This 158-nucleotide RNA sequence from Streptomyces avermitilis belongs to the Rfam family "c-di-AMP riboswitch aptamer (ydaO/yuaA leader)". The source organism's lineage runs through Bacteria, Bacillati, Actinomycetota, Streptomycetaceae and Streptomyces avermitilis.

RNA sequence: CGUGCGCGUGUGCCGAAUCCUGCAAGGGAACCGGGGAACCAUCAACUUGGGGUGAAUCACGCGGAUGCCGCCGUGGCAACACGGCAGGUAUACGCGCGUAGGAGACCUUCCUGCUCCGAACCCGUCAGCUAACCCGGUAGGCCAGAAGGAAGGAAAGG
Numbered sequence: 001c002g003u004g005c006g007c008g009u010g011u012g013c014c015g016a017a018u019c020c021u022g023c024a025a026g027g028g029a030a031c032c033g034g035g036g037a038a039c040c041a042u043c044a045a046c047u048u049g050g051g052g053u054g055a056a057u058c059a060c061g062c063g064g065a066u067g068c069c070g071c072c073g074u075g076g077c078a079a080c081a082c083g084g085c086a087g088g089u090a091u092a093c094g095c096g097c098g099u100a101g102g103a104g105a106c107c108u109u110c111c112u113g114c115u116c117c118g119a120a121c122c123c124g125u126c127a128g129c130u131a132a133c134c135c136g137g138u139a140g141g142c143c144a145g146a147a148g149g150a151a152g153g154a155a156a157g158g
Stems, first nucleotide, its partner, number of pairs: 012142003018029003030138006040049002050123003058098001060096004101117004